This 54-nucleotide RNA from Rubellimicrobium roseum belongs to the Rfam family "terC RNA".
[Rfam]
RNA sequence: CGUGGGGUCCGGGCCCCUCUGGCAGCCAAGAGGCUGCGAUGUCGGACCCCAUCC
Numbered sequence: 001c002g003u004g005g006g007g008u009c010c011g012g013g014c015c016c017c018u019c020u021g022g023c024a025g026c027c028a029a030g031a032g033g034c035u036g037c038g039a040u041g042u043c044g045g046a047c048c049c050c051a052u053c054c
Base pairs, nucleotide, nucleotide: 006048007047008046009045010044011043012042022037023036024035025034026033027032

NCBI's taxonomy places the organism under Bacteria, Pseudomonadati, Pseudomonadota, Roseobacteraceae, Rubellimicrobium.